The record is a 61-nucleotide sequence from Moorena producens, which matches "Plastid-psbN 5UTR RNA" in Rfam. It is annotated as a cis-regulatory element. The base pairs follow the family's consensus structure, which was predicted with LocARNA. From the family's description: Plastid psbN is a non-coding RNA (ncRNA) recognised in plastids. It was reported as a conserved 11 stem-loop in the prime untranslated region (5UTR) of psbN genes. It has been reported that the motif is retained in a subset of mature transcripts in barley, which can suggests a possible role in transcript alternative 5 prime processing.
[Rfam]
RNA sequence: AAAGACUCCCAUUACAGGGGUAGUGCCCCAACCUGGGGCAACUUUACCAUAUUCCGAGUUA
Numbered sequence: 001a002a003a004g005a006c007u008c009c010c011a012u013u014a015c016a017g018g019g020g021u022a023g024u025g026c027c028c029c030a031a032c033c034u035g036g037g038g039c040a041a042c043u044u045u046a047c048c049a050u051a052u053u054c055c056g057a058g059u060u061a
Base pairs, nucleotide, nucleotide: 017045018044019043020042021041023039024038026036027035